[Rfam]
This 265-nucleotide RNA from Scopulibacillus darangshiensis belongs to the Rfam family "Bacterial large signal recognition particle RNA".
The match comes from Rfam's covariance-model search (236 bits).
The family's consensus secondary structure is taken from published work.
Rfam classes the family as a non-coding RNA gene.
RNA sequence: CCGUGCUAGACGGGGAGGUAGCGGUGCCCUGUACUCGCAAUCCGCUAUAGCGAGGUUGAAUCCCUUUCCGAGGUUUUAGCCUUGUAGGGCAGCCUUAAGUAAGUGGUGUUGACAUUUGGGUCCUGCGCAACGGAAACUCAUGAACCCUGUCAGGUCCGGAAGGAAGCAGCAGUAAGUGAGACCUUUCGUGUGCCGCAGGGCUGCCUGAAUCGAGCUAACUGCUUAAGAAGCGCCUAUGAGACUUUAAUCGACGGAAGGUGCACGG
Dot-bracket structure: ((((((..(((((((.(.(...).).))))...(((((...........)))))))).....((((((...((((...(.((((((((...((.((((((..(((((......((((((((((((((((.(((((.(((((.....((((....(((....)))....))))...)))))...)))))))...))))))...))))))))...))).)).))))))...)).)))))))).)...))))...)))))).))))))

Gene Ontology terms of the family: signal recognition particle, plasma membrane targeting and SRP-dependent cotranslational protein targeting to membrane, signal sequence recognition.